[Rfam]
RNA sequence: AGAGAACCGAUGAUGGAGCAUAGUAAUUAAGCCAUAAAUCAUGGCCAGAGAGGAAUUGCCCCAGGCUGAAAGCAAUUCCGCAUGACGGUUUAAUGAAUGAACACUCCGUAGGUUUCUCCCUGAACUGACAGUAGGGGAGAACGUCGCAGGCGUUAACUGUAAAAGAGGGAGCCCCGCUUUUUGGGCUUCAAUUAGGGUGGCACCACGGGAAUCCAAAACUCUCGUCCCUUGU
Numbered sequence: 001a002g003a004g005a006a007c008c009g010a011u012g013a014u015g016g017a018g019c020a021u022a023g024u025a026a027u028u029a030a031g032c033c034a035u036a037a038a039u040c041a042u043g044g045c046c047a048g049a050g051a052g053g054a055a056u057u058g059c060c061c062c063a064g065g066c067u068g069a070a071a072g073c074a075a076u077u078c079c080g081c082a083u084g085a086c087g088g089u090u091u092a093a094u095g096a097a098u099g100a101a102c103a104c105u106c107c108g109u110a111g112g113u114u115u116c117u118c119c120c121u122g123a124a125c126u127g128a129c130a131g132u133a134g135g136g137g138a139g140a141a142c143g144u145c146g147c148a149g150g151c152g153u154u155a156a157c158u159g160u161a162a163a164a165g166a167g168g169g170a171g172c173c174c175c176g177c178u179u180u181u182u183g184g185g186c187u188u189c190a191a192u193u194a195g196g197g198u199g200g201c202a203c204c205a206c207g208g209g210a211a212u213c214c215a216a217a218a219c220u221c222u223c224g225u226c227c228c229u230u231g232u
Stems, first nucleotide, its partner, number of pairs: 007112002015107004026094006041083003052079008115140007142152003168189007194229004205225005
RNA: T-box leader
Organism: Neobacillus piezotolerans